This 224-nucleotide RNA sequence from Volvox reticuliferus belongs to the Rfam family "Plant small nucleolar RNA U3". From the family's description: Small nucleolar RNAs (snoRNAs) are involved in the processing and modification of rRNA in the nucleolus. There are two main classes of snoRNAs: the box C/D class, and the box H/ACA class. U3 snoRNA is a member of the box C/D class. Indeed, the box C/D element is a subset of the six short sequence elements found in all U3 snoRNAs, namely boxes A, A', B, C, C', and D. The U3 snoRNA secondary structure is characterised by a small 5' domain (with boxes A and A'), and a larger 3' domain (with boxes B, C, C', and D), the two domains being linked by a single-stranded hinge. Boxes B and C form the B/C motif, which appears to be exclusive to U3 snoRNAs, and boxes C' and D form the C'/D motif. The latter is functionally similar to the C/D motifs found in other snoRNAs. The 5' domain and the hinge region act as a pre-rRNA-binding domain. The 3' domain has conserved protein-binding sites. Both the box B/C and box C'/D motifs are sufficient for nuclear retention of U3 snoRNA. The box C'/D motif is also necessary for nucleolar localisation, stability and hyper-methylation of U3 snoRNA. Both box B/C and C'/D motifs are involved in specific protein interactions and are necessary for the rRNA processing functions of U3 snoRNA. The organism belongs to Volvox, within Eukaryota. Rfam links the family to the GO terms nucleolus and RNA processing. Rfam classes the family as a C/D-box small nucleolar RNA.
RNA sequence: AUGACCGUACUUGAACAGGAUCUGUUCUAUAGGUCAUACACCUCUCUAUGUUCUCUAACAUAGACAAGUCUCCCAACCCAGACGAAGAGGCGUAGUCCCGGCACCUGAGCGCAACGUAUGGCCGCAGUGGCCGUGCCGCUGGCACGGACGCGCAGCUCUGGAUGAACGUCCCGCUGAGCCACAUUCCGCCGGCAGGGAUGGUGCCCGGGACAAUCAGAUGGGUU
Numbered sequence: 001a002u003g004a005c006c007g008u009a010c011u012u013g014a015a016c017a018g019g020a021u022c023u024g025u026u027c028u029a030u031a032g033g034u035c036a037u038a039c040a041c042c043u044c045u046c047u048a049u050g051u052u053c054u055c056u057a058a059c060a061u062a063g064a065c066a067a068g069u070c071u072c073c074c075a076a077c078c079c080a081g082a083c084g085a086a087g088a089g090g091c092g093u094a095g096u097c098c099c100g101g102c103a104c105c106u107g108a109g110c111g112c113a114a115c116g117u118a119u120g121g122c123c124g125c126a127g128u129g130g131c132c133g134u135g136c137c138g139c140u141g142g143c144a145c146g147g148a149c150g151c152g153c154a155g156c157u158c159u160g161g162a163u164g165a166a167c168g169u170c171c172c173g174c175u176g177a178g179c180c181a182c183a184u185u186c187c188g189c190c191g192g193c194a195g196g197g198a199u200g201g202u203g204c205c206c207g208g209g210a211c212a213a214u215c216a217g218a219u220g221g222g223u224u
Stems, first nucleotide, its partner, number of pairs: 001037002003034001005033002013027006043066001045064001047062006076223005095211006101204005109169003118159001120157003124153002127151003131147005171196002173193004178189002